c-di-GMP-I-GGC riboswitch aptamer: a 75-nucleotide sequence from Pelovirga terrestris.
Lineage of the source: Bacteria > Pseudomonadati > Desulfuromonadia > Geobacteraceae > Pelovirga.
Its family is annotated with cyclic-di-GMP binding in the Gene Ontology.

RNA sequence: UCCGAUAAGGGCAAACCCGGCGCGAUCCGGGGACGCAAAGCCACGGGUCCCACGCGGACAGCCGGGUUGCCGAAG
Numbered sequence: 001u002c003c004g005a006u007a008a009g010g011g012c013a014a015a016c017c018c019g020g021c022g023c024g025a026u027c028c029g030g031g032g033a034c035g036c037a038a039a040g041c042c043a044c045g046g047g048u049c050c051c052a053c054g055c056g057g058a059c060a061g062c063c064g065g066g067u068u069g070c071c072g073a074a075g
Base pairs, nucleotide, nucleotide: 001075003072004071011036012035016031017030018029019028020027034061039068040067041066042065044064045063046062047059048058049057